[Rfam]
RNA sequence: UGCGUAUUUUGCUCAGGCGGAACUCGACCGCCCGUUCAGGAAAUGAUUUCAUUCAUUGAAGAUUACCGCACGGACUUUGGUGUCGGGUCGAUCUGCAAGAUUUUGCGGGUCGCACCA
Number, nucleotide and partner (000 for none) at each position: 001u000002g000003c000004g000005u000006a000007u000008u000009u000010u000011g000012c000013u000014c000015a000016g032017g031018c030019g029020g028021a000022a000023c000024u000025c000026g000027a000028c020029c019030g018031c017032c016033c000034g000035u000036u000037c000038a000039g000040g000041a000042a000043a000044u000045g000046a000047u000048u000049u000050c000051a000052u000053u000054c000055a000056u000057u000058g000059a000060a000061g000062a000063u000064u000065a000066c000067c000068g000069c000070a000071c000072g000073g000074a000075c000076u000077u000078u117079g116080g115081u114082g113083u000084c000085g000086g000087g000088u000089c112090g111091a000092u109093c108094u107095g106096c105097a104098a103099g000100a000101u000102u000103u098104u097105g096106c095107g094108g093109g092110u000111c090112g089113c082114a081115c080116c079117a078
Notes:
The family of this 117-nucleotide RNA from Pseudorhodobacter turbinis is "ALIL pseudoknot". Taxonomically the source falls in Pseudorhodobacter (Bacteria, Pseudomonadati, Pseudomonadota, Rhodobacterales). The family's RNA type in Rfam is cis-regulatory element. It scores 110 bits against the family's covariance model. The family's consensus secondary structure is taken from published work.